[Rfam]
RNA sequence: CCAGUCGGCUGGGCGACCGCUGCCGCCAAUGUCGAAAGACGGCGGGGGAGGAAAGUCCGGGCUCCACGGAGAAACGGUGCCGGGUAACGCCCGGCGGGGGCGACCCCAGGGACAGUGCCACAGAGAACAGACCGCCUCGCGGCCCUCGAUCAACCGGCGCCUUGCGCCGGUGAGGGGCGUCGGGGUCAGGGUGAAACGGUGGGGUAAGAGCCCACCGCGCCUCAUGGCAACAUGGGCGGCACGGCAAACCCCACCGGGAGCAAGACCGAAUAGGAACGACGCGGCGGGCGACCGCCGGCCUCUCCGGGUCAGUCGUUCGGGUGGGUUGCUCGAGGCGACGCGCGAGCGUCGUCCCAGAGGAAUGGUCGCCGGGCGGCUCCGGCCGCUCACAGAACCCGGCUUACAGGCCGACUGGCAUU
Numbered sequence: 001c002c003a004g005u006c007g008g009c010u011g012g013g014c015g016a017c018c019g020c021u022g023c024c025g026c027c028a029a030u031g032u033c034g035a036a037a038g039a040c041g042g043c044g045g046g047g048g049a050g051g052a053a054a055g056u057c058c059g060g061g062c063u064c065c066a067c068g069g070a071g072a073a074a075c076g077g078u079g080c081c082g083g084g085u086a087a088c089g090c091c092c093g094g095c096g097g098g099g100g101c102g103a104c105c106c107c108a109g110g111g112a113c114a115g116u117g118c119c120a121c122a123g124a125g126a127a128c129a130g131a132c133c134g135c136c137u138c139g140c141g142g143c144c145c146u147c148g149a150u151c152a153a154c155c156g157g158c159g160c161c162u163u164g165c166g167c168c169g170g171u172g173a174g175g176g177g178c179g180u181c182g183g184g185g186u187c188a189g190g191g192u193g194a195a196a197c198g199g200u201g202g203g204g205u206a207a208g209a210g211c212c213c214a215c216c217g218c219g220c221c222u223c224a225u226g227g228c229a230a231c232a233u234g235g236g237c238g239g240c241a242c243g244g245c246a247a248a249c250c251c252c253a254c255c256g257g258g259a260g261c262a263a264g265a266c267c268g269a270a271u272a273g274g275a276a277c278g279a280c281g282c283g284g285c286g287g288g289c290g291a292c293c294g295c296c297g298g299c300c301u302c303u304c305c306g307g308g309u310c311a312g313u314c315g316u317u318c319g320g321g322u323g324g325g326u327u328g329c330u331c332g333a334g335g336c337g338a339c340g341c342g343c344g345a346g347c348g349u350c351g352u353c354c355c356a357g358a359g360g361a362a363u364g365g366u367c368g369c370c371g372g373g374c375g376g377c378u379c380c381g382g383c384c385g386c387u388c389a390c391a392g393a394a395c396c397c398g399g400c401u402u403a404c405a406g407g408c409c410g411a412c413u414g415g416c417a418u419u
Stems, first nucleotide, its partner, number of pairs: 001415010011404001012370007020048002023045005053402003057399005062260004071304002075256005080094005095109001096107004110251002115249002117245003132190002134186006142178005198216006217240001218238004223234004264327004274318006297310004334353008
The family of this 419-nucleotide sequence from Aureimonas sp. Leaf454 is "Bacterial RNase P class A". Taxonomically the source falls in Aureimonas (Bacteria, Pseudomonadati, Alphaproteobacteria, Hyphomicrobiales).